[Rfam]
RNA sequence: AGAGGCCCAUCUGCGGCUGGGCACAGAACGCUUGCCUUGUCGCUGUGGUGACAAAGCAAGCAUUCUGCCAGGCCGCUCACGCUGCCCGC
Numbered sequence: 001a002g003a004g005g006c007c008c009a010u011c012u013g014c015g016g017c018u019g020g021g022c023a024c025a026g027a028a029c030g031c032u033u034g035c036c037u038u039g040u041c042g043c044u045g046u047g048g049u050g051a052c053a054a055a056g057c058a059a060g061c062a063u064u065c066u067g068c069c070a071g072g073c074c075g076c077u078c079a080c081g082c083u084g085c086c087c088g089c
Stems, first nucleotide, its partner, number of pairs: 004086003013076006021069001024067005030061006039052005